[Rfam]
RNA sequence: UUGUUUAAUACAAAAAAUAAAAUAUGAACAUUUUAAAUAAUACUUGGUGGUGGAAUAGUUUACGUCAGUCGUCGUGAAAUAGUCCAUUAUUGGUAUCAUUUAUCCAAAUAAUAUAAAAGACUUGUC
Numbered sequence: 001u002u003g004u005u006u007a008a009u010a011c012a013a014a015a016a017a018u019a020a021a022a023u024a025u026g027a028a029c030a031u032u033u034u035a036a037a038u039a040a041u042a043c044u045u046g047g048u049g050g051u052g053g054a055a056u057a058g059u060u061u062a063c064g065u066c067a068g069u070c071g072u073c074g075u076g077a078a079a080u081a082g083u084c085c086a087u088u089a090u091u092g093g094u095a096u097c098a099u100u101u102a103u104c105c106a107a108a109u110a111a112u113a114u115a116a117a118a119g120a121c122u123u124g125u126c
Base pairs, nucleotide, nucleotide: 036101037100040096041095042094043093044092046088047087049085050084056081057080059078060077061076062072063071064070
A member of the RNA family "Bacteroidete tryptophan peptide leader RNA" from Flavobacterium sangjuense, 126 nucleotides long. It scores 59 bits against the family's covariance model. The family's consensus secondary structure is taken from published work. It is annotated as a cis-regulatory leader.